[Rfam]
Nucleotides: 089
Base pairs, nucleotide, nucleotide: 005086006085007084008083010077011076012075013074014073043052045050
Number, partner (000 for none) and nucleotide at each position: 001000a002000g003000u004000g005086g006085c007084a008083u009000a010077a011076u012075g013074a014073g015000g016000a017000a018000c019000u020000u021000a022000c023000u024000u025000u026000g027000c028000u029000a030000a031000u032000g033000u034000a035000u036000u037000u038000a039000u040000g041000a042000c043052g044000u045050u046000g047000g048000a049000a050045g051000c052043c053000c054000a055000a056000u057000a058000a059000c060000a061000c062000g063000a064000u065000a066000u067000g068000u069000c070000u071000u072000u073014u074013u075012c076011a077010u078000u079000u080000u081000g082000a083008g084007u085006g086005u087000a088000u089000c